L31-Actinobacteria ribosomal protein leader: a 66-nucleotide RNA sequence. The family is grouped with related families in Rfam's "Ribosomal Protein L31 Leader clan". Pairs were carried over by alignment from the consensus structure, which is taken from published work. It is annotated as a cis-regulatory leader.
RNA sequence: UCGGUUCCGGUUCACGCCAGGGGGUUCAUCCAGCCCCAUCAGUUUUGCCAUCGGCGACCCGGAGCC
Numbered sequence: 001u002c003g004g005u006u007c008c009g010g011u012u013c014a015c016g017c018c019a020g021g022g023g024g025u026u027c028a029u030c031c032a033g034c035c036c037c038a039u040c041a042g043u044u045u046u047g048c049c050a051u052c053g054g055c056g057a058c059c060c061g062g063a064g065c066c
Stems, first nucleotide, its partner, number of pairs: 003066003007062004015056004020051001022049001